[Rfam]
RNA sequence: AGAUGAGAGAAACACCUCGCCCACGGGGGACUGUGGGUGAUGCCGGGUCGGAGCCUCCCCAGCCCCGCCCUGGUCGUGCCCUCGCGCACACCCCCGGAGCCUCCGGCUCCGGAACUCCUCACCGAUCGGA
Numbered sequence: 001a002g003a004u005g006a007g008a009g010a011a012a013c014a015c016c017u018c019g020c021c022c023a024c025g026g027g028g029g030a031c032u033g034u035g036g037g038u039g040a041u042g043c044c045g046g047g048u049c050g051g052a053g054c055c056u057c058c059c060c061a062g063c064c065c066c067g068c069c070c071u072g073g074u075c076g077u078g079c080c081c082u083c084g085c086g087c088a089c090a091c092c093c094c095c096g097g098a099g100c101c102u103c104c105g106g107c108u109c110c111g112g113a114a115c116u117c118c119u120c121a122c123c124g125a126u127c128g129g130a
Base pairs, nucleotide, nucleotide: 004121005120006119007118009117010116017040018039019038020037021036022035023034024033025032026031042074043073044072045071046070047069049067050066051065053063054062076089077088078087079086094112095111096110097109098108099107100106101105122129123128

The record is a 130-nucleotide RNA sequence from Streptomyces xanthii, which matches "Streptomyces RNA 5676" in Rfam.
The source organism's lineage runs through Bacteria, Actinomycetes, Kitasatosporales, Streptomycetaceae and Streptomyces.
The match comes from Rfam's covariance-model search (125 bits).
About the family: Identified by deep sequencing of transcriptome at the end of exponential growth phase. Appears longer on northern blot than sequencing transcript. This indicates processing step.
The pairing is the family consensus, mapped onto this sequence.